[Rfam]
RNA sequence: AGGAUUUGAGGACGGAACGGGCAGCCGUCGCCAGAUAGCGGAAACGCUUGAAUAGGAGAUGUGGGAUUGUCACCCCACCUUAUUCU
Numbered sequence: 001a002g003g004a005u006u007u008g009a010g011g012a013c014g015g016a017a018c019g020g021g022c023a024g025c026c027g028u029c030g031c032c033a034g035a036u037a038g039c040g041g042a043a044a045c046g047c048u049u050g051a052a053u054a055g056g057a058g059a060u061g062u063g064g065g066a067u068u069g070u071c072a073c074c075c076c077a078c079c080u081u082a083u084u085c086u
Stems, first nucleotide, its partner, number of pairs: 001086005008079001011029005020071004031056001032050002061078005
Shown here is an 86-nucleotide sequence, a member of the family "skipping-rope RNA". The family's RNA type in Rfam is small RNA.